[Rfam]
RNA: Listeria sRNA sbrA
RNA sequence: UUAGGCUAGAUCCAUACCCCUAAAAACUCCCUAGUAAUUGGAUAGUGUUUAAACAACGCUAUCCUCUUUUU
Numbered sequence: 001u002u003a004g005g006c007u008a009g010a011u012c013c014a015u016a017c018c019c020c021u022a023a024a025a026a027c028u029c030c031c032u033a034g035u036a037a038u039u040g041g042a043u044a045g046u047g048u049u050u051a052a053a054c055a056a057c058g059c060u061a062u063c064c065u066c067u068u069u070u071u
Stems, first nucleotide, its partner, number of pairs: 005035004040064010
Dot-bracket structure: ....((((.......................))))....((((((((((.....)))))))))).......